[Rfam]
RNA sequence: AAUAUACAAGCUGUUCAACCAAAGACAGUAGGUGUCCCUGUGACAUAAGCUUUGUCGCCUACCGAGGAAUGAGCAUUAUGUAGCACUUUCGUGCAAAUUUAUGUAAUGUCGUGCAUCCUCGAUUUGGGGAUGCACUUUUAUAUUUGUUGG
Numbered sequence: 001a002a003u004a005u006a007c008a009a010g011c012u013g014u015u016c017a018a019c020c021a022a023a024g025a026c027a028g029u030a031g032g033u034g035u036c037c038c039u040g041u042g043a044c045a046u047a048a049g050c051u052u053u054g055u056c057g058c059c060u061a062c063c064g065a066g067g068a069a070u071g072a073g074c075a076u077u078a079u080g081u082a083g084c085a086c087u088u089u090c091g092u093g094c095a096a097a098u099u100u101a102u103g104u105a106a107u108g109u110c111g112u113g114c115a116u117c118c119u120c121g122a123u124u125u126g127g128g129g130a131u132g133c134a135c136u137u138u139u140a141u142a143u144u145u146g147u148u149g150g
Base pairs, nucleotide, nucleotide: 028062029061030060031059032058033057034044035043036042111135112134113133114132115131116130117129118128119127120126
Shown here is a 150-nucleotide sequence from Eubacterium coprostanoligenes, a member of the family "Ribosomal protein L10 leader".
This family is a putative r-protein leader autoregulatory structure found in B. subtilis and other low-GC Gram-positive bacteria. It is located in the 5' untranslated regions of mRNAs encoding ribosomal proteins L10 and L12 (rplJ-rplL). A Rho-independent transcription terminator structure that is probably involved in regulation is included at the 3' end.
The match comes from Rfam's covariance-model search (71 bits).